[Rfam]
RNA sequence: CGCGACAAUGGCAAACCUGCCGUGAGGCAGUGACGCAAAACCAUGGGUCUCGCUGCUCGACCGCACGACGAGAUCGCCAGGUUGCCGAAC
Numbered sequence: 001c002g003c004g005a006c007a008a009u010g011g012c013a014a015a016c017c018u019g020c021c022g023u024g025a026g027g028c029a030g031u032g033a034c035g036c037a038a039a040a041c042c043a044u045g046g047g048u049c050u051c052g053c054u055g056c057u058c059g060a061c062c063g064c065a066c067g068a069c070g071a072g073a074u075c076g077c078c079a080g081g082u083u084g085c086c087g088a089a090c
Base pairs, nucleotide, nucleotide: 003087004086011036012035017030018029019028020027021026034076039083040082041081042080044079045078046077047074048073049072050071051070052069